Description: The family of this 120-nucleotide RNA sequence from Tatumella morbirosei is "RtT RNA". The family's RNA type in Rfam is cis-regulatory element. This family represents a bacterial cis-regulatory element known as RtT RNA. The exact function of RtT is unknown although it is thought that it may be involved in changing the cellular response in relation to amino acid starvation. The family's consensus secondary structure is taken from published work. Lineage of the source: Bacteria > Pseudomonadota > Gammaproteobacteria > Enterobacterales > Tatumella. On this family, see Bosl and Kersten, Nucleic Acids Res 1991: "A novel RNA product of the tyrT operon of Escherichia coli". A search with the family's covariance model found it, with a score of 81 bits.

[Rfam]
RNA sequence: CUCAGAAGCAAAACGUGCAGAAUGAGAACCUGCUGCAGGUUCGAGUCGAACGCAGUGAGACAACGUUGUUUACAACGGCCCGAAGGGCGAGCGAAGCGAGUCAUCCUGCACGACCCUCCC
Numbered sequence: 001c002u003c004a005g006a007a008g009c010a011a012a013a014c015g016u017g018c019a020g021a022a023u024g025a026g027a028a029c030c031u032g033c034u035g036c037a038g039g040u041u042c043g044a045g046u047c048g049a050a051c052g053c054a055g056u057g058a059g060a061c062a063a064c065g066u067u068g069u070u071u072a073c074a075a076c077g078g079c080c081c082g083a084a085g086g087g088c089g090a091g092c093g094a095a096g097c098g099a100g101u102c103a104u105c106c107u108g109c110a111c112g113a114c115c116c117u118c119c120c
Stems, first nucleotide, its partner, number of pairs: 015111006023103001033089001040084004047057002064077005